RNA sequence: AGAUUUCUGAGAUGUACGUCAUAUUUCUAAUGUGUUGACCUUACAUAUUUUUAUUGAUUUAGGGAUCCUUUAGAUACAUGUGAUAACAAGCCCUUUCACUUGGUAGUUAAAUAACAUUUACUUUGGAGCCCACCUGUUUUUAAGCAGGUUCAAGACAAAGAAAUAUAUCAAACGGCAUCACCGGAUGUCUU
Numbered sequence: 001a002g003a004u005u006u007c008u009g010a011g012a013u014g015u016a017c018g019u020c021a022u023a024u025u026u027c028u029a030a031u032g033u034g035u036u037g038a039c040c041u042u043a044c045a046u047a048u049u050u051u052u053a054u055u056g057a058u059u060u061a062g063g064g065a066u067c068c069u070u071u072a073g074a075u076a077c078a079u080g081u082g083a084u085a086a087c088a089a090g091c092c093c094u095u096u097c098a099c100u101u102g103g104u105a106g107u108u109a110a111a112u113a114a115c116a117u118u119u120a121c122u123u124u125g126g127a128g129c130c131c132a133c134c135u136g137u138u139u140u141u142a143a144g145c146a147g148g149u150u151c152a153a154g155a156c157a158a159a160g161a162a163a164u165a166u167a168u169c170a171a172a173c174g175g176c177a178u179c180a181c182c183g184g185a186u187g188u189c190u191u
Base pairs, nucleotide, nucleotide: 002189003188004187006185007184008183009182012178013177014176015175017174018173019172033157034156035155036152037151038150039148040147062131063130064129066127067126068125073121075120076119078117079116080115081114086107087106091103092102